Description: The record is a 52-nucleotide RNA sequence from Leptolyngbya sp. BL0902, which matches "Nitrogen stress-induced RNA 1" in Rfam. It scores 52 bits against the family's covariance model.
[Rfam]
RNA sequence: CGGUAGAUGCACCCUGAUGAAAUCCUUGGCCCCUGGGCUAGGGAUUUUUUUU
Numbered sequence: 001c002g003g004u005a006g007a008u009g010c011a012c013c014c015u016g017a018u019g020a021a022a023u024c025c026u027u028g029g030c031c032c033c034u035g036g037g038c039u040a041g042g043g044a045u046u047u048u049u050u051u052u
Stems, first nucleotide, its partner, number of pairs: 002013003023044009